[Rfam]
RNA sequence: UUUAAUUUUACGCUUAGUUCCCGCAUGGGAAACGGGGGACCCACUUGAAGCUAUCUUUAUAUAGAUAGUUCACGGGGUGAAUCCUUACAGGAAUGCCAACGCAUACCUGCUGGUAGGGCGCUCUCAAGCCCGAAUCCGUCAGCUAACCUCGUAAGCGAAUUGAGAGAGAACCG
Numbered sequence: 001u002u003u004a005a006u007u008u009u010a011c012g013c014u015u016a017g018u019u020c021c022c023g024c025a026u027g028g029g030a031a032a033c034g035g036g037g038g039a040c041c042c043a044c045u046u047g048a049a050g051c052u053a054u055c056u057u058u059a060u061a062u063a064g065a066u067a068g069u070u071c072a073c074g075g076g077g078u079g080a081a082u083c084c085u086u087a088c089a090g091g092a093a094u095g096c097c098a099a100c101g102c103a104u105a106c107c108u109g110c111u112g113g114u115a116g117g118g119c120g121c122u123c124u125c126a127a128g129c130c131c132g133a134a135u136c137c138g139u140c141a142g143c144u145a146a147c148c149u150c151g152u153a154a155g156c157g158a159a160u161u162g163a164g165a166g167a168g169a170a171c172c173g
Stems, first nucleotide, its partner, number of pairs: 011157004018031003032152006042074001075137003083113002116131004
The family of this 173-nucleotide RNA sequence from Paenibacillus foliorum is "c-di-AMP riboswitch aptamer (ydaO/yuaA leader)". The pairing is the family consensus, mapped onto this sequence. Rfam links the family to the GO terms cyclic-di-AMP binding and regulation of gene expression. The organism belongs to Paenibacillus, within Bacteria. The match comes from Rfam's covariance-model search (85 bits).